[Rfam]
RNA sequence: GGCUGGUCCAAUGAUAGUGGGUUAUCAGAACUUAUUAACAUUACUGUCACUAAAGUUGGUAUUCAACCCUCCACUGUGAAAUUUGACUGGCAAAA
Numbered sequence: 001g002g003c004u005g006g007u008c009c010a011a012u013g014a015u016a017g018u019g020g021g022u023u024a025u026c027a028g029a030a031c032u033u034a035u036u037a038a039c040a041u042u043a044c045u046g047u048c049a050c051u052a053a054a055g056u057u058g059g060u061a062u063u064c065a066a067c068c069c070u071c072c073a074c075u076g077u078g079a080a081a082u083u084u085g086a087c088u089g090g091c092a093a094a095a
Stems, first nucleotide, its partner, number of pairs: 002091007010084002015079001016075006033061003037057002
The record is a 95-nucleotide RNA from Microcebus murinus, which matches "Y RNA" in Rfam. It scores 50 bits against the family's covariance model. Rfam classes the family as a non-coding RNA gene. From the family's description: Y RNAs are components of the Ro ribonucleoprotein particle (Ro RNP), in association with Ro60 and La proteins. The Y RNAs and Ro60 and La proteins are well conserved, but the function of the Ro RNP is not known. In humans the RNA component can be one of four small RNAs -- hY1, hY3, hY4 and hY5.